[Rfam]
mir-5928 microRNA precursor family: a 75-nucleotide sequence from Haemonchus placei.
RNA sequence: GGCACAAACUUGAAGUAGAAUAGUUGGGUAUGAUCAGCUGAUGCUACUAAUCUACUCUACGCCAAGUUUGUGAUC
Numbered sequence: 001g002g003c004a005c006a007a008a009c010u011u012g013a014a015g016u017a018g019a020a021u022a023g024u025u026g027g028g029u030a031u032g033a034u035c036a037g038c039u040g041a042u043g044c045u046a047c048u049a050a051u052c053u054a055c056u057c058u059a060c061g062c063c064a065a066g067u068u069u070g071u072g073a074u075c
Stems, first nucleotide, its partner, number of pairs: 001074001003072007011064002015060005021054003025050001027048004033042003
The match comes from Rfam's covariance-model search (59 bits).